[Rfam]
RNA sequence: CUUCUUCUUGGCUGGGGGGCGGGGGACAGACUGUGGCCUUGUUCCCCGUAAUGCAAAGAAGCAGAGGGGAAGGGCUCUGGCCCCCUCAAUAUAAUGUCUCUGGUAUUGAUGUUUUCUAGUCUACCAGUUCUAUCCUCAAGAAAUGGGACAUUG
Numbered sequence: 001c002u003u004c005u006u007c008u009u010g011g012c013u014g015g016g017g018g019g020c021g022g023g024g025g026a027c028a029g030a031c032u033g034u035g036g037c038c039u040u041g042u043u044c045c046c047c048g049u050a051a052u053g054c055a056a057a058g059a060a061g062c063a064g065a066g067g068g069g070a071a072g073g074g075c076u077c078u079g080g081c082c083c084c085c086u087c088a089a090u091a092u093a094a095u096g097u098c099u100c101u102g103g104u105a106u107u108g109a110u111g112u113u114u115u116c117u118a119g120u121c122u123a124c125c126a127g128u129u130c131u132a133u134c135c136u137c138a139a140g141a142a143a144u145g146g147g148a149c150a151u152u153g
Base pairs, nucleotide, nucleotide: 001058002057012048014047015046016045017044018043020041021040022039023038087145088144090142092140106127107126108125110123111122
The family of this 153-nucleotide sequence from Cnephaeus nilssonii is "Small nucleolar RNA SNORA57". The family's RNA type in Rfam is H/ACA-box small nucleolar RNA. About the family: U99 belongs to the H/ACA class of snoRNAs which are thought to guide the sites of modification of uridines to pseudouridines, the target for this family is unknown. Rfam 15.1 lists 1,736 matches to the family in 530 species. A reference for the family is Vitali et al. (2003), "Identification of 13 novel human modification guide RNAs", Nucleic Acids Res. Pairs were carried over by alignment from the consensus structure, which was predicted with PFOLD.